[Rfam]
Source information: Shown here is an 85-nucleotide RNA, a member of the family "GA-cis RNA". The base pairs follow the family's consensus structure, which is taken from published work.
RNA sequence: CGUAGGAAGCACCAAGUGUCGAAGACACAUUUAGAAUGGUGCUGGCGAAAUGCCGCCGAAUGAAUAUGAGGUGGCGAUAACAAAC
Numbered sequence: 001c002g003u004a005g006g007a008a009g010c011a012c013c014a015a016g017u018g019u020c021g022a023a024g025a026c027a028c029a030u031u032u033a034g035a036a037u038g039g040u041g042c043u044g045g046c047g048a049a050a051u052g053c054c055g056c057c058g059a060a061u062g063a064a065u066a067u068g069a070g071g072u073g074g075c076g077a078u079a080a081c082a083a084a085c
Stems, first nucleotide, its partner, number of pairs: 008043006016028004052075003056071002060067002

Rfam classes the family as a small RNA.